[Rfam]
RNA sequence: GUCGGCGCUCCGGGGUGCGGGCAGCCAAUGGCUGUUCGCUGAGAUGGCAUCUGCCGAACCCGUGAACUUGAAUCGGUUCGUACCGACGUAAGAAGAGCACACGGAUAUCGG
Numbered sequence: 001g002u003c004g005g006c007g008c009u010c011c012g013g014g015g016u017g018c019g020g021g022c023a024g025c026c027a028a029u030g031g032c033u034g035u036u037c038g039c040u041g042a043g044a045u046g047g048c049a050u051c052u053g054c055c056g057a058a059c060c061c062g063u064g065a066a067c068u069u070g071a072a073u074c075g076g077u078u079c080g081u082a083c084c085g086a087c088g089u090a091a092g093a094a095g096a097g098c099a100c101a102c103g104g105a106u107a108u109c110g111g
Stems, first nucleotide, its partner, number of pairs: 007098004011062004016056001017039009046055003067092004073086004

A member of the RNA family "TPP riboswitch aptamer (THI element)" from Leeia aquatica, 111 nucleotides long. The source organism's lineage runs through Bacteria, Pseudomonadati, Betaproteobacteria, Leeiaceae and Leeia. The match comes from Rfam's covariance-model search (59 bits). From the family's description: Vitamin B(1) in its active form thiamin pyrophosphate (TPP) is an essential coenzyme that is synthesised by coupling of pyrimidine and thiazole moieties in bacteria.